[Rfam]
Shown here is a 188-nucleotide sequence from Oharaeibacter diazotrophicus, a member of the family "Alphaproteobacterial sRNA ar9". NCBI's taxonomy places the organism under Bacteria, Pseudomonadati, Alphaproteobacteria, Pleomorphomonadaceae, Oharaeibacter. A reference for the family is del Val et al. (2012), "A survey of sRNA families in alpha-proteobacteria", RNA Biol.
RNA sequence: AUGGGGGCCGCGGGUUCGCAAUUCAGAACGUUUCCGAUCGAGCGCGGUCUGAGUCUUGGGAGGAUAGCCCCGGCUGGCGCGGAAAUCGCAGCCGCCUCUACGAACGAGAGGGAGGAAACUCGUUCGGAGAAGUACAAGGGGUGACACGCCGAACUGAAGAAAGCAGGGCGAAAGCCCUGCUUUUUCUU
Numbered sequence: 001a002u003g004g005g006g007g008c009c010g011c012g013g014g015u016u017c018g019c020a021a022u023u024c025a026g027a028a029c030g031u032u033u034c035c036g037a038u039c040g041a042g043c044g045c046g047g048u049c050u051g052a053g054u055c056u057u058g059g060g061a062g063g064a065u066a067g068c069c070c071c072g073g074c075u076g077g078c079g080c081g082g083a084a085a086u087c088g089c090a091g092c093c094g095c096c097u098c099u100a101c102g103a104a105c106g107a108g109a110g111g112g113a114g115g116a117a118a119c120u121c122g123u124u125c126g127g128a129g130a131a132g133u134a135c136a137a138g139g140g141g142u143g144a145c146a147c148g149c150c151g152a153a154c155u156g157a158a159g160a161a162a163g164c165a166g167g168g169c170g171a172a173a174g175c176c177c178u179g180c181u182u183u184u185u186c187u188u
Stems, first nucleotide, its partner, number of pairs: 002036007044149003053065004067142005076093003079089003096132001162181008